[Rfam]
Bacillus-plasmid RNA: a 57-nucleotide RNA sequence from Senna tora.
RNA sequence: UCUGUCAACUCUAACGGGUAACAGUCAGGAGACUAAAGAGUUGACAGAGUUACAAAU
Numbered sequence: 001u002c003u004g005u006c007a008a009c010u011c012u013a014a015c016g017g018g019u020a021a022c023a024g025u026c027a028g029g030a031g032a033c034u035a036a037a038g039a040g041u042u043g044a045c046a047g048a049g050u051u052a053c054a055a056a057u
Stems, first nucleotide, its partner, number of pairs: 001048009
Dot-bracket structure: (((((((((..............................))))))))).........

Background
The family's RNA type in Rfam is small RNA. The organism belongs to Senna, within Eukaryota.